The record is a 192-nucleotide RNA sequence from Lentinula edodes, which matches "U2 spliceosomal RNA" in Rfam.
RNA sequence: UUACCCACCUGGCCUUUUGGCUUAGAGUCAAGUGUAGUAUCUGUUCUUAAUAUUUAACCACUGAUUACGGAGGGCACCGCCUCCUAUUUGGUUAUCUAUUUUUGCCGCCUUGUUCCUUCGUGCUCUGCUUGCAACACGGGGGACGUGUAUGACCUUGUAACUGCAGUACUGGCUUUGCGUCGUCGGGGAUCC
Numbered sequence: 001u002u003a004c005c006c007a008c009c010u011g012g013c014c015u016u017u018u019g020g021c022u023u024a025g026a027g028u029c030a031a032g033u034g035u036a037g038u039a040u041c042u043g044u045u046c047u048u049a050a051u052a053u054u055u056a057a058c059c060a061c062u063g064a065u066u067a068c069g070g071a072g073g074g075c076a077c078c079g080c081c082u083c084c085u086a087u088u089u090g091g092u093u094a095u096c097u098a099u100u101u102u103u104g105c106c107g108c109c110u111u112g113u114u115c116c117u118u119c120g121u122g123c124u125c126u127g128c129u130u131g132c133a134a135c136a137c138g139g140g141g142g143a144c145g146u147g148u149a150u151g152a153c154c155u156u157g158u159a160a161c162u163g164c165a166g167u168a169c170u171g172g173c174u175u176u177g178c179g180u181c182g183u184c185g186g187g188g189a190u191c192c
Stems, first nucleotide, its partner, number of pairs: 008027001009025002011022004048067004069084004074080002112144007126133002149183004157173002
The family's RNA type in Rfam is spliceosomal small nuclear RNA. Its Rfam clan is "U2 clan". About the family: U2 is a small nuclear RNA (snRNA) component of the spliceosome (involved in pre-mRNA splicing). Complementary binding between U2 snRNA (in an area lying towards the 5' end but 3' to hairpin I) and the branchpoint sequence (BPS) of the intron results the bulging out of an unpaired adenosine, on the BPS, which initiates a nucleophilic attack at the intronic 5' splice site, thus starting the first of two transesterification reactions that mediate splicing.